Annotation: msiK RNA: a 56-nucleotide sequence from a Frankiaceae bacterium. Rfam classes the family as a cis-regulatory element. The organism belongs to Frankiaceae, within Bacteria.
RNA sequence: ACCGGUCGCCCCCACUCGGAUCGUCCGGCACGUACCUGCCGGUGGAGGAGACGCAC
Numbered sequence: 001a002c003c004g005g006u007c008g009c010c011c012c013c014a015c016u017c018g019g020a021u022c023g024u025c026c027g028g029c030a031c032g033u034a035c036c037u038g039c040c041g042g043u044g045g046a047g048g049a050g051a052c053g054c055a056c
Stems, first nucleotide, its partner, number of pairs: 009048002012045003025042006